[Rfam]
RNA: GP20-a RNA
RNA sequence: UAAAGCCGAGCAUAAAGGCAUAUAAACAAAUGCACAUUCCAACGCAGAUAGUGACUGCGGAUUUAAAAAUUAAACUGAUUUAAAGAAUGUAAAGGAGUUAUGG
Numbered sequence: 001u002a003a004a005g006c007c008g009a010g011c012a013u014a015a016a017g018g019c020a021u022a023u024a025a026a027c028a029a030a031u032g033c034a035c036a037u038u039c040c041a042a043c044g045c046a047g048a049u050a051g052u053g054a055c056u057g058c059g060g061a062u063u064u065a066a067a068a069a070u071u072a073a074a075c076u077g078a079u080u081u082a083a084a085g086a087a088u089g090u091a092a093a094g095g096a097g098u099u100a101u102g103g
Stems, first nucleotide, its partner, number of pairs: 005019003010033004035089005043059004